[Rfam]
RNA sequence: CGAGCCGGGCGGACGGCCGCGUCAGGACCCCCGGGUCCUGCCGAGGAAGGUCCGGGCUCCACAGGGCAGGGUGAUGGCUAACGGCCACCCGGGGUGACCCGCGGGACAGUGCCACAGAAAACAGACCGCCGGGGACCUCGGUCCCCGGUAAGGGUGAAACGGUGGUGUAAGAGACCACCAGUGCCCAGGGCGACCUGGGCAGCUAGGUAAACCCCACCCGGAGCAAGGUCAAGAGGGCGUCGUAGCGAUACGCCGCCCGCGCGGACGUCCGAGGGCUGCCCGCCCGAGUCCGCGGGUAGACCGCACGAGGCUGCCGGCAACGGCAGCCCUAGAUGGAUGGCCGCCACCCGACGGGCCGCGAGGCCCCCGGGAACAGAACCCGGCCUACAGCCCGACUCGUCUG
Dot-bracket structure: ((((.(((((((.(((((.((.((((((......)))))).))....[[[.[[[[[((((...[[[[.(((((.((((.....)))).(((((....)))).)((...(((((............(((((((((((....)))))))))..)).......((((((.......)))))).(((((((((....)))))))).)..)))..)))))))))))))...((((..........................................((((.]]]])))).............))))......((((((((....))))))))..........))))).).................................]]]]]]]].).))))).))))....
Numbered sequence: 001c002g003a004g005c006c007g008g009g010c011g012g013a014c015g016g017c018c019g020c021g022u023c024a025g026g027a028c029c030c031c032c033g034g035g036u037c038c039u040g041c042c043g044a045g046g047a048a049g050g051u052c053c054g055g056g057c058u059c060c061a062c063a064g065g066g067c068a069g070g071g072u073g074a075u076g077g078c079u080a081a082c083g084g085c086c087a088c089c090c091g092g093g094g095u096g097a098c099c100c101g102c103g104g105g106a107c108a109g110u111g112c113c114a115c116a117g118a119a120a121a122c123a124g125a126c127c128g129c130c131g132g133g134g135a136c137c138u139c140g141g142u143c144c145c146c147g148g149u150a151a152g153g154g155u156g157a158a159a160c161g162g163u164g165g166u167g168u169a170a171g172a173g174a175c176c177a178c179c180a181g182u183g184c185c186c187a188g189g190g191c192g193a194c195c196u197g198g199g200c201a202g203c204u205a206g207g208u209a210a211a212c213c214c215c216a217c218c219c220g221g222a223g224c225a226a227g228g229u230c231a232a233g234a235g236g237g238c239g240u241c242g243u244a245g246c247g248a249u250a251c252g253c254c255g256c257c258c259g260c261g262c263g264g265a266c267g268u269c270c271g272a273g274g275g276c277u278g279c280c281c282g283c284c285c286g287a288g289u290c291c292g293c294g295g296g297u298a299g300a301c302c303g304c305a306c307g308a309g310g311c312u313g314c315c316g317g318c319a320a321c322g323g324c325a326g327c328c329c330u331a332g333a334u335g336g337a338u339g340g341c342c343g344c345c346a347c348c349c350g351a352c353g354g355g356c357c358g359c360g361a362g363g364c365c366c367c368c369g370g371g372a373a374c375a376g377a378a379c380c381c382g383g384c385c386u387a388c389a390g391c392c393c394g395a396c397u398c399g400u401c402u403g
Stems, first nucleotide, its partner, number of pairs: 001399004006394005011388001012345001014343005020043002023040006048386003052383005057223004064281004069219005075087004089103001090101004104214002109212002111208003126153002128149009161179006181203001182201008227302004273285004309328008
This 403-nucleotide sequence from Actinacidiphila bryophytorum belongs to the Rfam family "Bacterial RNase P class A". NCBI's taxonomy places the organism under Bacteria, Actinomycetota, Actinomycetes, Kitasatosporales, Actinacidiphila.